[Rfam]
RNA sequence: GCCGCUCUGGAAAGCAGGUCCGGCAGCGAGCCGGGUCUCACCCACGGUGCAAGUCCCACGAGGACGAAGCUCUCAGGUCCCAGCACAGAGGGGGAGCC
Numbered sequence: 001g002c003c004g005c006u007c008u009g010g011a012a013a014g015c016a017g018g019u020c021c022g023g024c025a026g027c028g029a030g031c032c033g034g035g036u037c038u039c040a041c042c043c044a045c046g047g048u049g050c051a052a053g054u055c056c057c058a059c060g061a062g063g064a065c066g067a068a069g070c071u072c073u074c075a076g077g078u079c080c081c082a083g084c085a086c087a088g089a090g091g092g093g094g095a096g097c098c
Base pairs, nucleotide, nucleotide: 002093003092005090006089007088008087009086016038017037018036019035020034021033022032023031040078041077042076044073047072049070053065054064